A member of the RNA family "Small nucleolar RNA SNORD71" from Microcaecilia unicolor, 85 nucleotides long.
The family's RNA type in Rfam is H/ACA-box small nucleolar RNA.
Gene Ontology terms of the family: nucleolus and RNA processing.
Lineage of the source: Eukaryota > Vertebrata > Teleostomi > Tetrapoda > Microcaecilia.
RNA sequence: UGUGCUGUUGAGUGAUGAAACGUUUGAGUGAUCCAUCAACAGAGUGUCCAACCACUGUGCUGAGACUCACCUCUGACAACGCACA
Dot-bracket structure: .((((.(((.((.(((.(..........).)))..(((.(...(((......)))...).))).........))...))))))).